The family of this 73-nucleotide sequence from Paenibacillus roseus is "tRNA". Pairs were carried over by alignment from the consensus structure, which is taken from published work. The family's RNA type in Rfam is transfer RNA.
RNA sequence: GCCUUUUUAGCUCAAUUGGUAGAGUCUCGGUUUUGUAAACCGACGGUUAUCGGUUCAAAUCCGAUAAAAGGCU
Numbered sequence: 001g002c003c004u005u006u007u008u009a010g011c012u013c014a015a016u017u018g019g020u021a022g023a024g025u026c027u028c029g030g031u032u033u034u035g036u037a038a039a040c041c042g043a044c045g046g047u048u049a050u051c052g053g054u055u056c057a058a059a060u061c062c063g064a065u066a067a068a069a070g071g072c073u
Base pairs, nucleotide, nucleotide: 001072002071003070004069005068006067007066010025011024012023013022027043028042029041030040031039049065050064051063052062053061